[Rfam]
RNA sequence: CCCCCCACGCCUCUCGAAGAAGCGCAUCAGGGGGGU
Numbered sequence: 001c002c003c004c005c006c007a008c009g010c011c012u013c014u015c016g017a018a019g020a021a022g023c024g025c026a027u028c029a030g031g032g033g034g035g036u
Base pairs, nucleotide, nucleotide: 001035002034003033004032005031006030008024009023010022
RNA: abiF RNA